This 104-nucleotide RNA sequence from Pseudomonas asplenii belongs to the Rfam family "Pseudomonas rnk leader". A search with the family's covariance model found it, with a score of 65 bits. The source organism's lineage runs through Bacteria, Pseudomonadati, Pseudomonadota, Pseudomonadaceae and Pseudomonas. The family's RNA type in Rfam is cis-regulatory leader. On this family, see Naville and Gautheret, Genome Biol 2010: "Premature terminator analysis sheds light on a hidden world of bacterial transcriptional attenuation".
RNA sequence: CGCUGUGGUUUGUGUAUUGGUGCUGCUGUGGUAGUGUCCGGCUAUGCCCCACACUGAAGUGGGGAGUGAGAACCCCGCCUUUCGUGGCGGGGUUUUGCUUUUAU
Numbered sequence: 001c002g003c004u005g006u007g008g009u010u011u012g013u014g015u016a017u018u019g020g021u022g023c024u025g026c027u028g029u030g031g032u033a034g035u036g037u038c039c040g041g042c043u044a045u046g047c048c049c050c051a052c053a054c055u056g057a058a059g060u061g062g063g064g065a066g067u068g069a070g071a072a073c074c075c076c077g078c079c080u081u082u083c084g085u086g087g088c089g090g091g092g093u094u095u096u097g098c099u100u101u102u103a104u
Stems, first nucleotide, its partner, number of pairs: 002050001005047002018034001020032002069096011